[Rfam]
RNA sequence: AAUAUCUCACAGGGGAGCUUGUGUAGCAGGCUGAGAGGAAGUAAUCAAACUUCGACCCUUUAACCUGAUUUGGGUAAUGCCAACGUAGGAAGUGUUAGUUUAUAGUGC
Numbered sequence: 001a002a003u004a005u006c007u008c009a010c011a012g013g014g015g016a017g018c019u020u021g022u023g024u025a026g027c028a029g030g031c032u033g034a035g036a037g038g039a040a041g042u043a044a045u046c047a048a049a050c051u052u053c054g055a056c057c058c059u060u061u062a063a064c065c066u067g068a069u070u071u072g073g074g075u076a077a078u079g080c081c082a083a084c085g086u087a088g089g090a091a092g093u094g095u096u097a098g099u100u101u102a103u104a105g106u107g108c
Stems, first nucleotide, its partner, number of pairs: 008094003011059004017031005038053005064089004070083004
Source information:
This 108-nucleotide RNA from Clostridium isatidis belongs to the Rfam family "TPP riboswitch aptamer (THI element)". Rfam's curators write: Vitamin B(1) in its active form thiamin pyrophosphate (TPP) is an essential coenzyme that is synthesised by coupling of pyrimidine and thiazole moieties in bacteria. NCBI's taxonomy places the organism under Bacteria, Bacillota, Eubacteriales, Clostridiaceae, Clostridium. The base pairs follow the family's consensus structure, which is taken from published work.